A member of the RNA family "Betaproteobacteria toxic small RNA" from Massilia forsythiae, 62 nucleotides long. Rfam's curators write: Overexpression in amino aid rich medium attenuates growth, suggesting role in repressing amino acid intake and metabolism. Taxonomically the source falls in Massilia (Bacteria, Pseudomonadota, Betaproteobacteria, Oxalobacteraceae).

RNA sequence: UGUCUCCUCCAAGUCCCUGACUUGGAUUCACGCCUGCAGCAGCGAUGCGCGGGCGUUUUUUU
Numbered sequence: 001u002g003u004c005u006c007c008u009c010c011a012a013g014u015c016c017c018u019g020a021c022u023u024g025g026a027u028u029c030a031c032g033c034c035u036g037c038a039g040c041a042g043c044g045a046u047g048c049g050c051g052g053g054c055g056u057u058u059u060u061u062u
Stems, first nucleotide, its partner, number of pairs: 008026008031055007